[Rfam]
RNA sequence: GGUAUGAUGAUUUUUGCCAGCGGUGUUAUCCCCAGCGCCGCGGCGUACGUUUAUAACGUGCAAAAAUACUUUUCAGAAUGUU
Number, nucleotide and partner (000 for none) at each position: 001g000002g000003u000004a000005u000006g000007a000008u000009g000010a000011u000012u000013u000014u000015u000016g044017c043018c042019a000020g041021c040022g039023g038024u037025g036026u035027u034028a000029u000030c000031c000032c000033c000034a027035g026036c025037g024038c023039c022040g021041c020042g018043g017044c016045g061046u060047a059048c058049g057050u056051u000052u000053a000054u000055a000056a050057c049058g048059u047060g046061c045062a000063a000064a000065a000066a000067u000068a000069c000070u000071u000072u000073u000074c000075a000076g000077a000078a000079u000080g000081u000082u000